[Rfam]
A member of the RNA family "ALIL pseudoknot" from Novosphingobium malaysiense, 117 nucleotides long. By type it is a cis-regulatory element.
RNA sequence: CGAGUGGGUGAAGAAGGCGGAGCUCGACCGCCCGUUCAAGCGAUGAUCGCGUUUAUCGAAGACCAGCGUGCCGUUCAUGGGGUCGAGCCGAUCUGCAAGGUGCUGCCGAUCGCCCCA
Numbered sequence: 001c002g003a004g005u006g007g008g009u010g011a012a013g014a015a016g017g018c019g020g021a022g023c024u025c026g027a028c029c030g031c032c033c034g035u036u037c038a039a040g041c042g043a044u045g046a047u048c049g050c051g052u053u054u055a056u057c058g059a060a061g062a063c064c065a066g067c068g069u070g071c072c073g074u075u076c077a078u079g080g081g082g083u084c085g086a087g088c089c090g091a092u093c094u095g096c097a098a099g100g101u102g103c104u105g106c107c108g109a110u111c112g113c114c115c116c117a
Stems, first nucleotide, its partner, number of pairs: 016032005078117005089112002092109002095106003
The family's consensus secondary structure is taken from published work.